[Rfam]
RNA sequence: UGAGCAUAACAGGGCCACCCCAAAGCGUUCACAUUGUGGCCCCUGUCAGAUUCUGGUAAAUCUGCGAGUUCUGCU
Numbered sequence: 001u002g003a004g005c006a007u008a009a010c011a012g013g014g015c016c017a018c019c020c021c022a023a024a025g026c027g028u029u030c031a032c033a034u035u036g037u038g039g040c041c042c043c044u045g046u047c048a049g050a051u052u053c054u055g056g057u058a059a060a061u062c063u064g065c066g067a068g069u070u071c072u073g074c075u
Base pairs, nucleotide, nucleotide: 012042013041014040015039016038021073022072023070024069025037026036027035047064048063049062050061051060052059
Shown here is a 75-nucleotide RNA from Echinops telfairi, a member of the family "Mammalian CPEB3 ribozyme".
Pairs were carried over by alignment from the consensus structure, which is taken from published work.
It is one of the family's seed sequences.
The organism belongs to Echinops, within Eukaryota.